[Rfam]
RNA sequence: CCUCACAUGUGUCUUAUGGCUUUCUAUUCCUAUGUGAGUUGUUCUAAGAUGUCAUGUAGGGUCUAAAGCCAUUGGAUGCAAAGUGGA
Numbered sequence: 001c002c003u004c005a006c007a008u009g010u011g012u013c014u015u016a017u018g019g020c021u022u023u024c025u026a027u028u029c030c031u032a033u034g035u036g037a038g039u040u041g042u043u044c045u046a047a048g049a050u051g052u053c054a055u056g057u058a059g060g061g062u063c064u065a066a067a068g069c070c071a072u073u074g075g076a077u078g079c080a081a082a083g084u085g086g087a
Stems, first nucleotide, its partner, number of pairs: 002086002008080007016072008028061010
The family of this 87-nucleotide RNA sequence from Gouania willdenowi is "mir-135 microRNA precursor family". NCBI's taxonomy places the organism under Eukaryota, Craniata, Clupeocephala, Euteleosteomorpha, Gouania. The family has 88 seed sequences and 2,125 matches in Rfam 15.1.